[Rfam]
RNA sequence: CAGCGCCCGUCACAUCACCGCCAAGGCAGUCAUGUCAGAGCGAAAUUUUCUAAUCUGGUCAUGCCGCUGGGUAGCGAACUGCUGCCCACCGCUAUGCGCAUCACAGAUACCACCGGGACACGCCGGCAGGUCUGGCGCAGUUUCUUUGCUGAUCGGCUCACGCCUUCGGCAGAUCGACGUAGAUAGCAUGAAAAACCG
Numbered sequence: 001c002a003g004c005g006c007c008c009g010u011c012a013c014a015u016c017a018c019c020g021c022c023a024a025g026g027c028a029g030u031c032a033u034g035u036c037a038g039a040g041c042g043a044a045a046u047u048u049u050c051u052a053a054u055c056u057g058g059u060c061a062u063g064c065c066g067c068u069g070g071g072u073a074g075c076g077a078a079c080u081g082c083u084g085c086c087c088a089c090c091g092c093u094a095u096g097c098g099c100a101u102c103a104c105a106g107a108u109a110c111c112a113c114c115g116g117g118a119c120a121c122g123c124c125g126g127c128a129g130g131u132c133u134g135g136c137g138c139a140g141u142u143u144c145u146u147u148g149c150u151g152a153u154c155g156g157c158u159c160a161c162g163c164c165u166u167c168g169g170c171a172g173a174u175c176g177a178c179g180u181a182g183a184u185a186g187c188a189u190g191a192a193a194a195a196c197c198g
Base pairs, nucleotide, nucleotide: 004042005041006040012035013034014033015032017030018029020027021026059191060190061189062188063187064186065091066090068088069087070086071085072084073083074082075081095139096138097137098136099135104134105133106132107131110130111129113126114125115124116123141177142176145173146172147171148170149169150168151167152166155164156163157162
Dot-bracket structure: ...(((.....((((.((.((....)).)).))))....)))................((((((((.((((((((.....)))))))).))...(((((....((((..((.((((......))))..))))))))))).((..((((((((..(((....))).))))))))..))........)))))).......

Shown here is a 198-nucleotide sequence from Collimonas fungivorans, a member of the family "RT-15 RNA". The family's RNA type in Rfam is small RNA.